[Rfam]
RNA sequence: AGUCAACGCGAUCGGCGUUUCCCUCCUCCCGGUCUCGCUGCGUUGGCUGUUCCCUCUGGAGGUUUGACCUUCAAACUUAAAGGGCUCCGGUUCAUGCCGAGAGCCCUUCUU
Numbered sequence: 001a002g003u004c005a006a007c008g009c010g011a012u013c014g015g016c017g018u019u020u021c022c023c024u025c026c027u028c029c030c031g032g033u034c035u036c037g038c039u040g041c042g043u044u045g046g047c048u049g050u051u052c053c054c055u056c057u058g059g060a061g062g063u064u065u066g067a068c069c070u071u072c073a074a075a076c077u078u079a080a081a082g083g084g085c086u087c088c089g090g091u092u093c094a095u096g097c098c099g100a101g102a103g104c105c106c107u108u109c110u111u
Stems, first nucleotide, its partner, number of pairs: 001048005007042003015038003057073007082106006088099004